[Rfam]
RNA: Small nucleolar RNA snoR2/U65
RNA sequence: AGUUUGAUGCCACAUCUUUGAUAGCUCACUCUGGCAGUGACCAACGAUGCUAUGACUGAACCAAAAACACAAGUUUUUUCACACCUUGAUAGGAAUCUGUUGUCUUUUUAUUAUAGAUUAUAGAUUUACAGAGCCAUUUUUUGUGAUUACAUUU
Numbered sequence: 001a002g003u004u005u006g007a008u009g010c011c012a013c014a015u016c017u018u019u020g021a022u023a024g025c026u027c028a029c030u031c032u033g034g035c036a037g038u039g040a041c042c043a044a045c046g047a048u049g050c051u052a053u054g055a056c057u058g059a060a061c062c063a064a065a066a067a068c069a070c071a072a073g074u075u076u077u078u079u080c081a082c083a084c085c086u087u088g089a090u091a092g093g094a095a096u097c098u099g100u101u102g103u104c105u106u107u108u109u110a111u112u113a114u115a116g117a118u119u120a121u122a123g124a125u126u127u128a129c130a131g132a133g134c135c136a137u138u139u140u141u142u143g144u145g146a147u148u149a150c151a152u153u154u
Stems, first nucleotide, its partner, number of pairs: 002061005008055001009053001013049004018044001020042001022040001024035003079146005092135002097131003102125004